[Rfam]
RNA sequence: AAUCCGCGUUUUAGUUACUUAUUUUGAAAUGUAAAUCUAGAACAAAAGAAAAAUCAUGAGGGAUAUUUACGUUUUAGUUACUUAUUUUGAAAUGUAAAUGGUUUUGAAUGCUGGUGGUGAUAGUCCUAAUGAAGGUUUUAGUUACUUAUUAUGAAAUGUAAAUUUGGUUCCUUUGGAAAACAACAAUAACGUGUAGUAUUGUUUUAUUCAAUCAUUCAGAAUUGGUAAAUGCAGAAGCAGCAAAAUAACCAAAAGUAAUGACUUUCGUUUUAAUUUCUUAAGAUGAAAUAUAAAUGAAAACCUGUUAUACAUAGGAUUAUCUAUUUCCGUUAUAAUUAUUCCUUGCAA
Numbered sequence: 001a002a003u004c005c006g007c008g009u010u011u012u013a014g015u016u017a018c019u020u021a022u023u024u025u026g027a028a029a030u031g032u033a034a035a036u037c038u039a040g041a042a043c044a045a046a047a048g049a050a051a052a053a054u055c056a057u058g059a060g061g062g063a064u065a066u067u068u069a070c071g072u073u074u075u076a077g078u079u080a081c082u083u084a085u086u087u088u089g090a091a092a093u094g095u096a097a098a099u100g101g102u103u104u105u106g107a108a109u110g111c112u113g114g115u116g117g118u119g120a121u122a123g124u125c126c127u128a129a130u131g132a133a134g135g136u137u138u139u140a141g142u143u144a145c146u147u148a149u150u151a152u153g154a155a156a157u158g159u160a161a162a163u164u165u166g167g168u169u170c171c172u173u174u175g176g177a178a179a180a181c182a183a184c185a186a187u188a189a190c191g192u193g194u195a196g197u198a199u200u201g202u203u204u205u206a207u208u209c210a211a212u213c214a215u216u217c218a219g220a221a222u223u224g225g226u227a228a229a230u231g232c233a234g235a236a237g238c239a240g241c242a243a244a245a246u247a248a249c250c251a252a253a254a255g256u257a258a259u260g261a262c263u264u265u266c267g268u269u270u271u272a273a274u275u276u277c278u279u280a281a282g283a284u285g286a287a288a289u290a291u292a293a294a295u296g297a298a299a300a301c302c303u304g305u306u307a308u309a310c311a312u313a314g315g316a317u318u319a320u321c322u323a324u325u326u327c328c329g330u331u332a333u334a335a336u337u338a339u340u341c342c343u344u345g346c347a348a
Stems, first nucleotide, its partner, number of pairs: 008030007089327006128164003134159001135157006186308006193301002203294005212286005219279002
Rfam assigns this 348-nucleotide RNA sequence from Listeria monocytogenes to the family "Listeria sRNA rliB". Rfam classes the family as a small RNA. Pairs were carried over by alignment from the consensus structure, which was predicted with RNAalifold. A reference for the family is Toledo-Arana et al. (2009), "The Listeria transcriptional landscape from saprophytism to virulence", Nature.